[Rfam]
RNA sequence: AUGAGAGCUUCGACGAUUACGGCAGGCAAAAGCACGUUACCCACUACAUCGUGGUUGAGCAGACUUUAGAGGUCGCUGUUCUGAGCUUAACGUCUGUUUUAACUGAAACGCCGCAUUCUACACUACAACGCUAAGACGGGGAAAUGUUCAACGUGUAAGGAGAGCGGGAACUGGAAAGCGCCUCGCUUUUCCCUGUAAAACACUGCAACGCAGGAAAAGCGCAAGCUUAUCGGGCUACCAACCUAACGGGCAGAUAAUGUAUAUUGCCGUUGGUCAGGCCAGCAAAACGCUCACUGGCGCAUUUCGAUUGAGGUAGUUUCGACACGAACAAGGCCAGGCGGGAGGGCAACGUUUAAAAUCACUGGCUGCCAGGCGUCGCGCUCCGACAGUUUUCGGGAAUAGCCGCGGGCAACCAGAAACCCGCCCAUGCCGCCCAGCACGGCCCCGCUUAAUGCGGCAAGGUCAGAUCCAAACAGUACCUGAAAAAGCGCCGCACAGAAAAAUAGCCCCGCUAAAGGCGACAUAUAUACCAGCAGCGCUGAACCUAAGAGGCUUUUUUCGGCGAUUCCCAGCUCGACUUUCUGCCCUGGCGCCAGCGGCUCCGCGCUUGGCACAACAAUCGUAUGGCUGGUUUGCGGCCCUAAUUUAUUCAGUACGCGACUGCCGCAUCCCGCGCGGGAGGCGCAACUGCUGCACGACGCUUUAACAUCGCAGCUCACCACCGCCUGACCAUUCUGCCAGGAGACAACUGUUGCCCACUCUUUAAUCAUUGUACUGCCCUGAAUUUGAUACUGUCGGCAAUGCGC
Number, nucleotide and partner (000 for none) at each position: 001a000002u000003g000004a000005g000006a000007g000008c000009u000010u000011c000012g000013a000014c000015g000016a000017u000018u000019a000020c000021g000022g000023c000024a000025g000026g000027c000028a000029a000030a000031a000032g000033c000034a000035c000036g000037u000038u000039a000040c000041c000042c000043a000044c000045u000046a000047c000048a000049u000050c000051g000052u000053g000054g000055u000056u000057g000058a000059g000060c000061a095062g094063a093064c092065u000066u090067u089068a000069g088070a087071g086072g000073u084074c083075g082076c000077u000078g000079u000080u000081c000082u075083g074084a073085g000086c071087u070088u069089a067090a066091c000092g064093u063094c062095u061096g109097u108098u107099u106100u105101a000102a000103c000104u000105g100106a099107a098108a097109c096110g000111c167112c166113g165114c164115a000116u162117u161118c160119u159120a156121c155122a154123c153124u000125a000126c141127a000128a000129c138130g137131c000132u000133a000134a000135g000136a000137c130138g129139g000140g000141g126142a000143a000144a000145u000146g000147u000148u000149c000150a000151a000152c000153g123154u122155g121156u120157a000158a000159g119160g118161a117162g116163a000164g114165c113166g112167g111168g000169a000170a000171c000172u000173g000174g000175a000176a000177a000178g000179c000180g000181c000182c000183u000184c000185g000186c000187u000188u218189u217190u216191c000192c214193c213194u212195g211196u210197a000198a000199a000200a000201c000202a000203c000204u000205g000206c000207a000208a000209c000210g196211c195212a194213g193214g192215a000216a190217a189218a188219g806220c805221g804222c803223a802224a000225g799226c798227u797228u791229a790230u789231c788232g244233g243234g242235c000236u000237a000238c000239c000240a000241a000242c234243c233244u232245a000246a000247c000248g000249g000250g000251c782252a781253g780254a000255u000256a000257a000258u000259g775260u774261a773262u772263a000264u000265u769266g000267c000268c000269g000270u000271u000272g000273g000274u000275c000276a000277g000278g000279c000280c000281a000282g755283c754284a753285a752286a000287a000288c000289g749290c000291u747292c000293a000294c741295u740296g739297g738298c737299g325300c000301a000302u322303u321304u000305c000306g318307a317308u316309u315310g314311a000312g000313g000314u310315a309316g308317u307318u306319u000320c000321g303322a302323c000324a000325c299326g000327a000328a000329c000330a000331a000332g731333g730334c000335c728336a727337g726338g725339c724340g723341g722342g000343a000344g717345g716346g715347c714348a000349a000350c000351g000352u000353u000354u000355a000356a000357a000358a000359u000360c000361a000362c000363u000364g640365g639366c638367u637368g636369c635370c000371a634372g633373g632374c631375g600376u599377c598378g597379c596380g593381c592382u000383c590384c589385g588386a000387c584388a583389g582390u000391u000392u000393u577394c576395g575396g574397g573398a000399a000400u000401a000402g000403c000404c000405g428406c000407g426408g425409g424410c423411a000412a000413c000414c000415a000416g000417a000418a000419a000420c000421c000422c000423g410424c409425c408426c407427a000428u405429g000430c000431c520432g519433c518434c517435c000436a513437g512438c511439a000440c000441g508442g507443c506444c000445c000446c000447g000448c000449u499450u498451a000452a000453u495454g494455c493456g492457g491458c490459a000460a000461g000462g000463u483464c482465a481466g480467a000468u478469c000470c476471a000472a000473a000474c000475a000476g470477u000478a468479c000480c466481u465482g464483a463484a000485a000486a000487a000488g000489c000490g458491c457492c456493g455494c454495a453496c000497a000498g450499a449500a000501a000502a000503a000504u000505a000506g443507c442508c441509c000510c000511g438512c437513u436514a000515a000516a000517g434518g433519c432520g431521a000522c000523a000524u000525a000526u000527a000528u000529a000530c000531c000532a000533g568534c000535a566536g000537c564538g563539c562540u561541g560542a559543a558544c552545c551546u550547a000548a000549g000550a546551g545552g544553c000554u000555u000556u000557u000558u543559u542560c541561g540562g539563c538564g537565a000566u535567u000568c533569c000570c000571a000572g000573c397574u396575c395576g394577a393578c000579u000580u000581u000582c389583u388584g387585c000586c000587c000588u385589g384590g383591c000592g381593c380594c000595a000596g379597c378598g377599g376600c375601u000602c000603c630604g629605c000606g000607c626608u000609u624610g623611g000612c000613a620614c000615a000616a000617c000618a000619a000620u613621c000622g000623u610624a609625u000626g607627g000628c000629u604630g603631g374632u373633u372634u371635g369636c368637g367638g366639c365640c364641c000642u000643a000644a000645u000646u000647u000648a000649u000650u000651c000652a000653g694654u693655a692656c000657g691658c690659g689660a000661c000662u686663g685664c684665c000666g683667c682668a000669u680670c679671c678672c677673g000674c000675g000676c000677g672678g671679g670680a669681g000682g667683c666684g664685c663686a662687a000688c000689u659690g658691c657692u655693g654694c653695a000696c000697g710698a709699c000700g707701c000702u000703u000704u000705a000706a000707c700708a000709u698710c697711g000712c000713a000714g347715c346716u345717c344718a000719c000720c000721a000722c341723c340724g339725c338726c337727u336728g335729a000730c333731c332732a000733u000734u000735c000736u000737g298738c297739c296740a295741g294742g000743a000744g000745a000746c000747a291748a000749c289750u000751g000752u285753u284754g283755c282756c000757c000758a000759c000760u000761c000762u000763u000764u000765a000766a000767u000768c000769a265770u000771u000772g262773u261774a260775c259776u000777g000778c000779c000780c253781u252782g251783a000784a000785u000786u000787u000788g231789a230790u229791a228792c000793u000794g000795u000796c000797g227798g226799c225800a000801a000802u223803g222804c221805g220806c219